[Rfam]
RNA sequence: GCAUGGUGAUGGAUUUAUGGCAGGUCCUUCUUUGUGGGCCUCUCAUAGUGUGCCCAUGCCAGAGUAAACUGCGGCCUAGAACCAUUGCCCAGCCCCCUCACAGUGAGCUGCAAGCAUUGAGUGAGGUCAUACAGAC
Number, nucleotide and partner (000 for none) at each position: 001g059002c058003a057004u056005g054006g053007u052008g051009a000010u000011g000012g000013a000014u000015u048016u047017a046018u045019g044020g043021c000022a041023g040024g039025u037026c036027c000028u000029u000030c000031u000032u000033u000034g000035u000036g026037g025038g000039c024040c023041u022042c000043u020044c019045a018046u017047a016048g015049u000050g000051u008052g007053c006054c005055c000056a004057u003058g002059c001060c000061a000062g000063a000064g000065u000066a000067a000068a000069c000070u000071g000072c000073g128074g127075c126076c125077u124078a000079g000080a000081a000082c000083c119084a118085u000086u000087g000088c114089c000090c110091a109092g108093c107094c000095c105096c000097c000098u000099c000100a000101c000102a000103g000104u000105g095106a000107g093108c092109u091110g090111c000112a000113a000114g088115c000116a000117u000118u084119g083120a000121g000122u000123g000124a077125g076126g075127u074128c073129a000130u000131a000132c000133a000134g000135a000136c000
The record is a 136-nucleotide RNA from Erinaceus europaeus, which matches "Small nucleolar RNA SNORA42/SNORA80 family" in Rfam.
Rfam describes the family as follows. The members of this family belong to the H/ACA class of snoRNAs that guide the sites of modification of uridines to pseudouridines. Human ACA42 (SNORA42) was cloned from HeLa cells by immunoprecipitation with anti-GAR1 antibody. Its is predicted to guide the pseudouridylation of residues U109 and U572 of 18S rRNA. ACA42 shares the same host gene with ACA26, ACA46, ACA50. This family also includes mammalian snoRNA ACA67 (SNORA80) which was identified by computational screening and its expression in mouse experimentally verified by Northern blot and primer extension analysis. ACA67 is proposed to guide the pseudouridylation of the same 18S rRNA residues as ACA42.
It scores 111 bits against the family's covariance model.
Lineage of the source: Eukaryota > Opisthokonta > Eutheria > Erinaceinae > Erinaceus.
Rfam classes the family as an H/ACA-box small nucleolar RNA.